Nucleotides: 063
Stems, first nucleotide, its partner, number of pairs: 007044006028058002031055007
Number, partner (000 for none) and nucleotide at each position: 001000u002000u003000a004000g005000u006000c007044u008043u009042a010041c011040a012039c013000a014000c015000a016000a017000u018000g019000g020000u021000a022000g023000g024000c025000c026000a027000g028058u029057g030000g031055u032054a033053g034052u035051g036050a037049g038000a039012g040011u041010g042009u043008a044007a045000g046000u047000a048000g049037c050036u051035u052034a053033c054032u055031a056000u057029c058028a059000u060000a061000u062000u063000a
The family of this 63-nucleotide RNA from Alphacoronavirus triaenopis is "Coronavirus 3' UTR pseudoknot". A reference for the family is Williams et al. (1999), "A phylogenetically conserved hairpin-type 3' untranslated region pseudoknot functions in coronavirus RNA replication", J Virol. Coronaviruses are plus-strand RNA viruses with ~30kb genomes. The 3' UTR region of coronavirus genomes contains a conserved ~55nt pseudoknot structure which has been shown to be necessary for viral genome replication. The mechanism of cis-regulation is unclear, but this element is postulated to function in the plus-strand. The seed alignment was expanded in 2020 by Eric Nawrocki. The family's consensus secondary structure is taken from published work. By type it is a cis-regulatory element. Lineage of the source: Viruses > Orthornavirae > Nidovirales > Alphacoronavirus triaenopis > NL63-related bat coronavirus strain BtKYNL63-9b.